[Rfam]
RNA sequence: AGGGGUUCUACAGGGUCGACCUGAGACCACAUGAAGAUUGUUCUCAGUUCAGAAUACAUUACUCAGCUCAUGUGUUCUCAGGUCGCCCCUGCUGAACUUUU
Numbered sequence: 001a002g003g004g005g006u007u008c009u010a011c012a013g014g015g016u017c018g019a020c021c022u023g024a025g026a027c028c029a030c031a032u033g034a035a036g037a038u039u040g041u042u043c044u045c046a047g048u049u050c051a052g053a054a055u056a057c058a059u060u061a062c063u064c065a066g067c068u069c070a071u072g073u074g075u076u077c078u079c080a081g082g083u084c085g086c087c088c089c090u091g092c093u094g095a096a097c098u099u100u101u
Stems, first nucleotide, its partner, number of pairs: 007095002011091004017085003023079004028074005
Rfam assigns this 101-nucleotide sequence from Abrus precatorius to the family "MIR398 microRNA precursor family". The literature on the family includes a 2004 paper in Mol Cell by Jones-Rhoades and Bartel, "Computational identification of plant microRNAs and their targets, including a stress-induced miRNA". The organism belongs to Abrus, within Eukaryota. The match comes from Rfam's covariance-model search (73 bits).